Notes:
This 97-nucleotide RNA sequence from Morella rubra belongs to the Rfam family "Small nucleolar RNA Z102/R77". On this family, see Chen et al., Nucleic Acids Res 2003: "The high diversity of snoRNAs in plants: identification and comparative study of 120 snoRNA genes from Oryza sativa". The base pairs follow the family's consensus structure, which was predicted with PFOLD.
[Rfam]
RNA sequence: UAAUGAGAUGAUAAUUAUGUGUAUUUCCCUAUUGGUUUGAUUGUACCGAAUAAGUGAUGGCAUCAAUCUGUAUUUUAGUCUCUAGAUAUGAUCGUUC
Numbered sequence: 001u002a003a004u005g006a007g008a009u010g011a012u013a014a015u016u017a018u019g020u021g022u023a024u025u026u027c028c029c030u031a032u033u034g035g036u037u038u039g040a041u042u043g044u045a046c047c048g049a050a051u052a053a054g055u056g057a058u059g060g061c062a063u064c065a066a067u068c069u070g071u072a073u074u075u076u077a078g079u080c081u082c083u084a085g086a087u088a089u090g091a092u093c094g095u096u097c
Stems, first nucleotide, its partner, number of pairs: 002096004039064001044062001046060002
Description: A search with the family's covariance model found it, with a score of 42 bits. Lineage of the source: Eukaryota > Tracheophyta > Gunneridae > Pentapetalae > Morella. Rfam links the family to the GO terms nucleolus and RNA processing.